RNA: Fluoride riboswitch aptamer (crcB RNA motif)
Organism: Mycobacterium botniense
RNA sequence: ACUGGGGUUGGCGAUGGAGCCCGCCGGGAGCACGUCUUCCGAACCGCCACAAGGGCUGAUGGCACCUGCGAACUG
Numbered sequence: 001a002c003u004g005g006g007g008u009u010g011g012c013g014a015u016g017g018a019g020c021c022c023g024c025c026g027g028g029a030g031c032a033c034g035u036c037u038u039c040c041g042a043a044c045c046g047c048c049a050c051a052a053g054g055g056c057u058g059a060u061g062g063c064a065c066c067u068g069c070g071a072a073c074u075g
Stems, first nucleotide, its partner, number of pairs: 010025004016066002019063003046056003